[Rfam]
RNA: Fluoride riboswitch aptamer (crcB RNA motif)
Organism: Acidiferrobacter sp. SPIII_3
RNA sequence: ACGAGAACAGGAGAUGGCAUUCCUCCUCAUAACCGCCCUACCGGCUGAUGAUGCCUACAUAGUC
Numbered sequence: 001a002c003g004a005g006a007a008c009a010g011g012a013g014a015u016g017g018c019a020u021u022c023c024u025c026c027u028c029a030u031a032a033c034c035g036c037c038c039u040a041c042c043g044g045c046u047g048a049u050g051a052u053g054c055c056u057a058c059a060u061a062g063u064c
Base pairs, nucleotide, nucleotide: 010026011025012024013023016055017054018053019052020051021050035045036044037043